RNA sequence: GCUAGAUUUAGUGCCGCCUUGUAUUCUUUAAAGUUUUCUCCUUUUUGUAUAUAAGGAAAUGACAGUUUUGCUUGGUGGCAGAAAUCU
Number, nucleotide and partner (000 for none) at each position: 001g000002c000003u000004a000005g000006a000007u000008u000009u000010a000011g000012u080013g079014c078015c077016g076017c075018c074019u000020u000021g071022u070023a000024u000025u000026c000027u000028u000029u000030a000031a000032a000033g063034u062035u000036u000037u059038c000039u057040c056041c055042u054043u053044u000045u000046u000047g000048u000049a000050u000051a000052u000053a043054a042055g041056g040057a039058a000059a037060u000061g000062a034063c033064a000065g000066u000067u000068u000069u000070g022071c021072u000073u000074g018075g017076u016077g015078g014079c013080a012081g000082a000083a000084a000085u000086c000087u000
RNA: Small nucleolar RNA snoR110
Organism: Microthlaspi erraticum